Shown here is an 86-nucleotide RNA from Ziziphus jujuba, a member of the family "Plastid-psbM 3UTR RNA". Lineage of the source: Eukaryota > Spermatophyta > rosids > Paliureae > Ziziphus. Plastid psbM is a non-coding RNA (ncRNA) recognised in plastids. It was found in the three prime untranslated region (3UTR) of psbM gene, its 3UTR location suggests a role in transcript maturation.

RNA sequence: GAGACGAUAGUAUGGUAGAAAGAAAGAUUCAUAUUUUUCUUUCUACCAUACUAUCUAGUAUUGUCAUUGUAUUGUCAAUUCCAUAU
Numbered sequence: 001g002a003g004a005c006g007a008u009a010g011u012a013u014g015g016u017a018g019a020a021a022g023a024a025a026g027a028u029u030c031a032u033a034u035u036u037u038u039c040u041u042u043c044u045a046c047c048a049u050a051c052u053a054u055c056u057a058g059u060a061u062u063g064u065c066a067u068u069g070u071a072u073u074g075u076c077a078a079u080u081c082c083a084u085a086u
Base pairs, nucleotide, nucleotide: 006055007054008053009052010051011050012049013048014047015046016045017044018043019042020041021040022039023038024037025036026035027034028033